RNA sequence: UAUCUUUGCAGCUGCAAAGCAAAAUGCUAUGCAACACAUAAAAAUCAUUUAAAUAAUAUUGGCAUG
Dot-bracket structure: .............(((.((.......)).)))..................................
Shown here is a 66-nucleotide RNA sequence, a member of the family "S15-Flavobacteria ribosomal protein leader". The family is grouped with related families in Rfam's "Ribosomal Protein S15 Leader clan". A reference for the family is Eckert and Weinberg (2020), "Discovery of 20 novel ribosomal leader candidates in bacteria and archaea", BMC Microbiol. Rfam's curators put it in the seed alignment. By type it is a cis-regulatory leader.